Nitrogen stress-induced RNA 1: a 59-nucleotide RNA sequence from Synechococcales cyanobacterium T60_A2020_003. The match comes from Rfam's covariance-model search (45 bits). By type it is a small RNA. The source organism's lineage runs through Bacteria, Bacillati, Cyanobacteriota, Cyanophyceae and Synechococcales.

RNA sequence: UGGUAGAUGCACCCUGAUUCAAACCCUCGGCCUCAAGUAAUUGAGCUGGGGGUUUUCCU
Numbered sequence: 001u002g003g004u005a006g007a008u009g010c011a012c013c014c015u016g017a018u019u020c021a022a023a024c025c026c027u028c029g030g031c032c033u034c035a036a037g038u039a040a041u042u043g044a045g046c047u048g049g050g051g052g053u054u055u056u057c058c059u
Stems, first nucleotide, its partner, number of pairs: 002013003024052007032045004